[Rfam]
A member of the RNA family "Bacterial RNase P class A" from Fusobacterium sp. FSA-380-WT-3A, 332 nucleotides long. Rfam classes the family as a ribozyme. The base pairs follow the family's consensus structure, which is taken from published work. The source organism's lineage runs through Bacteria, Fusobacteriota, Fusobacteriales, Fusobacteriaceae and Fusobacterium.
RNA sequence: UAGGUAUUACAGUUAAUUGCUUGAUUAUUCAAGAGGAAAGUCCGGGCUCCAUAGAGCAAGAGGAUAGCUAACGGCUAUUGGAAGUAAUUCUAAGGAAAGUGCAACAGAAAACAAACCGCCAGAAAUGGUAAGGGUGAAAAGGCAGUGUAAGAGACUACCAAAUUUUUAGGGAACUAAAAAUGUUUUGUAAACCCCCUCUGGAGCAAGACUAAGAAAGAAAGGUUAAGGGCUGCUCGUCCACUUUCAUGGUAAGUUGCUUGAACUUAUAAGUGAUUGUAAGUCUAGAUAAAUAAUUAACUGAUACAAAACCCGGCUUAUGUAAUGCCUAAAUA
Numbered sequence: 001u002a003g004g005u006a007u008u009a010c011a012g013u014u015a016a017u018u019g020c021u022u023g024a025u026u027a028u029u030c031a032a033g034a035g036g037a038a039a040g041u042c043c044g045g046g047c048u049c050c051a052u053a054g055a056g057c058a059a060g061a062g063g064a065u066a067g068c069u070a071a072c073g074g075c076u077a078u079u080g081g082a083a084g085u086a087a088u089u090c091u092a093a094g095g096a097a098a099g100u101g102c103a104a105c106a107g108a109a110a111a112c113a114a115a116c117c118g119c120c121a122g123a124a125a126u127g128g129u130a131a132g133g134g135u136g137a138a139a140a141g142g143c144a145g146u147g148u149a150a151g152a153g154a155c156u157a158c159c160a161a162a163u164u165u166u167u168a169g170g171g172a173a174c175u176a177a178a179a180a181u182g183u184u185u186u187g188u189a190a191a192c193c194c195c196c197u198c199u200g201g202a203g204c205a206a207g208a209c210u211a212a213g214a215a216a217g218a219a220a221g222g223u224u225a226a227g228g229g230c231u232g233c234u235c236g237u238c239c240a241c242u243u244u245c246a247u248g249g250u251a252a253g254u255u256g257c258u259u260g261a262a263c264u265u266a267u268a269a270g271u272g273a274u275u276g277u278a279a280g281u282c283u284a285g286a287u288a289a290a291u292a293a294u295u296a297a298c299u300g301a302u303a304c305a306a307a308a309c310c311c312g313g314c315u316u317a318u319g320u321a322a323u324g325c326c327u328a329a330a331u332a
Base pairs, nucleotide, nucleotide: 001328002327003326004325005324006323007322008321009320010319011318012298013297014296015295016294017293018292020033021032022031023030024029038316039315040314042313043312044311045310046309047203048202049201050200054235055234056233057232059199060198061197062196063195064078065077066076067075068074079093080091081090082089083088094194095193099192100191101188102187103186116133117132118129119128120127121126141159142158144156145155146154161183162181163180164179165178166177167176168175169174207255208254209253210252217245218244219243220242221241227239228238229237230236262281263280264279265278266277267276268275269274